[Rfam]
RNA sequence: GAGAGUAGGCCUCUCGGUUUCGGCUGCCAGAAGCUGGAAUCAAACGACCCUAUGCGGUUAUUGUAAAGAGUAGUGGGAUAGCCAACCUCUUGUUUCACUUUGAUAAGAAGCU
Numbered sequence: 001g002a003g004a005g006u007a008g009g010c011c012u013c014u015c016g017g018u019u020u021c022g023g024c025u026g027c028c029a030g031a032a033g034c035u036g037g038a039a040u041c042a043a044a045c046g047a048c049c050c051u052a053u054g055c056g057g058u059u060a061u062u063g064u065a066a067a068g069a070g071u072a073g074u075g076g077g078a079u080a081g082c083c084a085a086c087c088u089c090u091u092g093u094u095u096c097a098c099u100u101u102g103a104u105a106a107g108a109a110g111c112u
Base pairs, nucleotide, nucleotide: 001015002014003013004012005011016041017040018039019038020037021036023034024033025032046111050081051080052079053078054074055073057071058070059069061067088108089107090106091105092104093103
Group II catalytic intron D1-D4-2: a 112-nucleotide RNA sequence from Desulfomarina profundi.
Rfam's curators write: Group II introns are found in rRNA, tRNA and mRNA of organelles in fungi, plants and protists, and also in mRNA in bacteria.
Gene Ontology term of the family: Group II intron splicing.